[Rfam]
RNA sequence: AAAGCCCGUCCGGUACAGCUUGACCAGCGGCCGGAAGCGAGUCUUGCGUCGUACGCCGGUAACCCGUCCGGCGAAGCGUAGACAGCCAGUCUGAAAGCCAUGCUAUUGAGCUUCGAAAGGCCAGUUGCUGGAGCCUCUGUUUUUCCGACCCCUGGGGCCACGCUGCGGCACUUUAUUGGUCUGGUGCCAGCAGUCCUGCCGGAGUCGACUGAACA
Dot-bracket structure: ........(((((....(((.[[[.)))..))))).((..(((((((((((.(((..(....).))).)))))...)).)))).)).....................(.((((((...........((.((((((...(............)...)))....((((.(((((......]]].)))))..))))))).))))))))).........

Rfam assigns this 215-nucleotide sequence from Planctomyces bekefii to the family "Group II catalytic intron D1-D4-6". On this family, see Lehmann and Schmidt, Crit Rev Biochem Mol Biol 2003: "Group II introns: structure and catalytic versatility of large natural ribozymes". NCBI's taxonomy places the organism under Bacteria, Pseudomonadati, Planctomycetota, Planctomycetaceae, Planctomyces.